[Rfam]
RNA sequence: UCUGUCUCUGUCUCUCAAAAAUAAAUGUUCAAAAAAAGUAUUAGUCAGGGGAUGAAAAGAAACUAACUAGGAUUCCUUCAGCAACCAGGAGUGAACAGAGAAGAACUCAGCACCAAAUUCCCACAUGGUGGGACAGGAAAUGUGUAUUGAAGACCCACUCUUGGUUGCUGCUUGUGGUGGGCCCAAGUUCUUCUGAAGGAGGCCUGGUAGUGGCCCUGGAGCACUGGGGCACACACUGGCCAGGUCUUCUUGGAGUCACUGCUUGGGAAUGCAGCCAAAAGUGGGUGGUAAAUGGCAUCUAAGGCUGGAGACUGAAUCAACAAGUACCACAAAGGAAAGUUGCAAAGAGCUUUGAAGAGAGUUCAAGA
Numbered sequence: 001u002c003u004g005u006c007u008c009u010g011u012c013u014c015u016c017a018a019a020a021a022u023a024a025a026u027g028u029u030c031a032a033a034a035a036a037a038g039u040a041u042u043a044g045u046c047a048g049g050g051g052a053u054g055a056a057a058a059g060a061a062a063c064u065a066a067c068u069a070g071g072a073u074u075c076c077u078u079c080a081g082c083a084a085c086c087a088g089g090a091g092u093g094a095a096c097a098g099a100g101a102a103g104a105a106c107u108c109a110g111c112a113c114c115a116a117a118u119u120c121c122c123a124c125a126u127g128g129u130g131g132g133a134c135a136g137g138a139a140a141u142g143u144g145u146a147u148u149g150a151a152g153a154c155c156c157a158c159u160c161u162u163g164g165u166u167g168c169u170g171c172u173u174g175u176g177g178u179g180g181g182c183c184c185a186a187g188u189u190c191u192u193c194u195g196a197a198g199g200a201g202g203c204c205u206g207g208u209a210g211u212g213g214c215c216c217u218g219g220a221g222c223a224c225u226g227g228g229g230c231a232c233a234c235a236c237u238g239g240c241c242a243g244g245u246c247u248u249c250u251u252g253g254a255g256u257c258a259c260u261g262c263u264u265g266g267g268a269a270u271g272c273a274g275c276c277a278a279a280a281g282u283g284g285g286u287g288g289u290a291a292a293u294g295g296c297a298u299c300u301a302a303g304g305c306u307g308g309a310g311a312c313u314g315a316a317u318c319a320a321c322a323a324g325u326a327c328c329a330c331a332a333a334g335g336a337a338a339g340u341u342g343c344a345a346a347g348a349g350c351u352u353u354g355a356a357g358a359g360a361g362u363u364c365a366a367g368a
Base pairs, nucleotide, nucleotide: 024053026050028048029047036041063070064069074101075100077098078097084092085091104306106304107303110147112145113144116141118139119138120137121136122132152249153248157245158244159243170230171229172228173227177224178223179222182219183218187203189202190201191200192199259274260273261272262271283300284299285298286297287296327334350361351360352359353358
Background: The family of this 368-nucleotide part of an RNA from Lynx canadensis is "Eukaryotic large subunit ribosomal RNA". NCBI's taxonomy places the organism under Eukaryota, Opisthokonta, Bilateria, Felinae, Lynx.